This 77-nucleotide RNA sequence from Xanthomonas oryzae belongs to the Rfam family "Xanthomonas sRNA sX9". Taxonomically the source falls in Xanthomonas oryzae pv. oryzae (Bacteria, Pseudomonadati, Pseudomonadota, Xanthomonas). Rfam classes the family as a small RNA. On this family, see Schmidtke et al., Nucleic Acids Res 2011: "Genome-wide transcriptome analysis of the plant pathogen Xanthomonas identifies sRNAs with putative virulence functions". It scores 76 bits against the family's covariance model.

[Rfam]
RNA sequence: AUGUACCACGCGAACAUUGCGGUUCCGAGCGUGCCGUAAGCGCCCACCUGACAGCGGCUCGCUACGUUGUGUUAGCC
Numbered sequence: 001a002u003g004u005a006c007c008a009c010g011c012g013a014a015c016a017u018u019g020c021g022g023u024u025c026c027g028a029g030c031g032u033g034c035c036g037u038a039a040g041c042g043c044c045c046a047c048c049u050g051a052c053a054g055c056g057g058c059u060c061g062c063u064a065c066g067u068u069g070u071g072u073u074a075g076c077c
Base pairs, nucleotide, nucleotide: 002016003015004014006012020036021035022034023033025031048075049074050073051072052071053070